[Rfam]
RNA sequence: AAUGCAGGAUAGUGUGUAUCGACUGAAUGCUUAUUUACAAUGCAUUUUCUGUCGAAAGUGUUUCCUGCAAGAGCAAUCUGGGGCAAAUGGGCAGUUGGGACAAAACCUAAUUUUUGAUCGGGUGUCUCGACAAUCAUUUUCCUCAUAUGC
Numbered sequence: 001a002a003u004g005c006a007g008g009a010u011a012g013u014g015u016g017u018a019u020c021g022a023c024u025g026a027a028u029g030c031u032u033a034u035u036u037a038c039a040a041u042g043c044a045u046u047u048u049c050u051g052u053c054g055a056a057a058g059u060g061u062u063u064c065c066u067g068c069a070a071g072a073g074c075a076a077u078c079u080g081g082g083g084c085a086a087a088u089g090g091g092c093a094g095u096u097g098g099g100a101c102a103a104a105a106c107c108u109a110a111u112u113u114u115u116g117a118u119c120g121g122g123u124g125u126c127u128c129g130a131c132a133a134u135c136a137u138u139u140u141c142c143u144c145a146u147a148u149g150c
Base pairs, nucleotide, nucleotide: 004068005067006066007065008064009062014045015044016043017042018041019040080144081143082142083141085139086138087137088136089135090134094131095130096129097128098127099126100125
Notes
The record is a 150-nucleotide sequence from Zingiber officinale, which matches "small nucleolar RNA snoR135" in Rfam.